A member of the RNA family "c-di-AMP riboswitch aptamer (ydaO/yuaA leader)" from Streptomyces boluensis, 175 nucleotides long.
RNA sequence: GAAAACCUCACACCGACUCACUACGUGCGGCAGGAGCGGGGGACCCAGGUAAGCCGCCGUCCCGGAUCCGCCACGGAUUCCGGAACGGCUCGGGGUGAAGUCGCACACGCAGUGCGACCGGACAUCUCCCGUCCGAACCCGACAGCUCACCUCGUAGGCGCCGGAGAGGAAUGCG
Numbered sequence: 001g002a003a004a005a006c007c008u009c010a011c012a013c014c015g016a017c018u019c020a021c022u023a024c025g026u027g028c029g030g031c032a033g034g035a036g037c038g039g040g041g042g043a044c045c046c047a048g049g050u051a052a053g054c055c056g057c058c059g060u061c062c063c064g065g066a067u068c069c070g071c072c073a074c075g076g077a078u079u080c081c082g083g084a085a086c087g088g089c090u091c092g093g094g095g096u097g098a099a100g101u102c103g104c105a106c107a108c109g110c111a112g113u114g115c116g117a118c119c120g121g122a123c124a125u126c127u128c129c130c131g132u133c134c135g136a137a138c139c140c141g142a143c144a145g146c147u148c149a150c151c152u153c154g155u156a157g158g159c160g161c162c163g164g165a166g167a168g169g170a171a172u173g174c175g
Stems, first nucleotide, its partner, number of pairs: 011160001013158002018035002036155006046092001093140003101117004120134004

The base pairs follow the family's consensus structure. Lineage of the source: Bacteria > Actinomycetota > Actinomycetes > Kitasatosporales > Streptomyces. It scores 64 bits against the family's covariance model. Its family is annotated with regulation of gene expression and cyclic-di-AMP binding in the Gene Ontology.